RNA sequence: GUUUUGUUGGUGGUCAUUUAACCAUGCAUGCUUCGAUCGAUGGAUUGGUGCAUGCAUGGAUUAUUGCAUAGUGUGAUGCAUGUGGCGCAUCAGUGCAUGGUUAGAUGACCAUCAGCAAACAU
Numbered sequence: 001g002u003u004u005u006g007u008u009g010g011u012g013g014u015c016a017u018u019u020a021a022c023c024a025u026g027c028a029u030g031c032u033u034c035g036a037u038c039g040a041u042g043g044a045u046u047g048g049u050g051c052a053u054g055c056a057u058g059g060a061u062u063a064u065u066g067c068a069u070a071g072u073g074u075g076a077u078g079c080a081u082g083u084g085g086c087g088c089a090u091c092a093g094u095g096c097a098u099g100g101u102u103a104g105a106u107g108a109c110c111a112u113c114a115g116c117a118a119a120c121a122u
Base pairs, nucleotide, nucleotide: 001120002119003118004117006116007115008114009113010112011111012110013109014108015107016106017105018104019103020102021101022100023099024098025097026096027095028094029093
A member of the RNA family "MIR827 microRNA precursor family" from Zea mays, 122 nucleotides long. The source organism's lineage runs through Eukaryota, Embryophyta, Spermatophyta, Liliopsida and Zea. The family has 5 seed sequences and 57 matches in Rfam 15.1. The sequence is in the family's curated seed alignment.